[Rfam]
RNA sequence: UGGCCAUAGAAUAACUUAUUCUGUGGCCACUUUGAGUUACGAUAAUUACCAUGCUAAUUUACGAGAUUACAAUAACUCCUUACCAAGUGAUUUACUAUAACAUUAUGGUAAAUAUCACCGUGAGUUAUAGUAACACGAGUAUCGUAAAUGCAUAUUCAUGUUAUCAUAAAUUGAUACAAACAUUAUCGUAAAUCAAGGUGGCUAUGGAACAAGUGUUUCAAAUGUCU
Numbered sequence: 001u002g003g004c005c006a007u008a009g010a011a012u013a014a015c016u017u018a019u020u021c022u023g024u025g026g027c028c029a030c031u032u033u034g035a036g037u038u039a040c041g042a043u044a045a046u047u048a049c050c051a052u053g054c055u056a057a058u059u060u061a062c063g064a065g066a067u068u069a070c071a072a073u074a075a076c077u078c079c080u081u082a083c084c085a086a087g088u089g090a091u092u093u094a095c096u097a098u099a100a101c102a103u104u105a106u107g108g109u110a111a112a113u114a115u116c117a118c119c120g121u122g123a124g125u126u127a128u129a130g131u132a133a134c135a136c137g138a139g140u141a142u143c144g145u146a147a148a149u150g151c152a153u154a155u156u157c158a159u160g161u162u163a164u165c166a167u168a169a170a171u172u173g174a175u176a177c178a179a180a181c182a183u184u185a186u187c188g189u190a191a192a193u194c195a196a197g198g199u200g201g202c203u204a205u206g207g208a209a210c211a212a213g214u215g216u217u218u219c220a221a222a223u224g225u226c227u
Base pairs, nucleotide, nucleotide: 002227003226005224006223007222009219010218011217014214015213016212017211019209020208021207022206023205024204025203026202027201028200029199030198031197032196033195037191038190039189040188041187042186043185044184045183046182052176053175055173056172057171058170059169060168061167065165066164067163069161070160071159074155080147081146082145083144087142088141089140091138092137093132094131095130096129097128098127099126100125101124103122108116
Shown here is a 227-nucleotide RNA sequence from Miscanthus lutarioriparius, a member of the family "MIR6217 microRNA precursor family".
Its family is annotated with miRNA-mediated post-transcriptional gene silencing and RISC complex in the Gene Ontology.
Pairs were carried over by alignment from the consensus structure, which was predicted with RNAalifold.